The record is a 78-nucleotide RNA from Tardiphaga robiniae, which matches "Fluoride riboswitch aptamer (crcB RNA motif)" in Rfam. Rfam links the family to the GO terms response to fluoride and positive regulation of gene expression. The family has 289 seed sequences and 2,293 matches in Rfam 15.1.
[Rfam]
RNA sequence: AAACGACACGGUAAUGGAUUCUGCCGGGCCAUCGUGGCCGAACCGCUUCCGAGAGAAGCUGAUGACUCCUACUCAACU
Numbered sequence: 001a002a003a004c005g006a007c008a009c010g011g012u013a014a015u016g017g018a019u020u021c022u023g024c025c026g027g028g029c030c031a032u033c034g035u036g037g038c039c040g041a042a043c044c045g046c047u048u049c050c051g052a053g054a055g056a057a058g059c060u061g062a063u064g065a066c067u068c069c070u071a072c073u074c075a076a077c078u
Stems, first nucleotide, its partner, number of pairs: 010025004016069003020065002045059004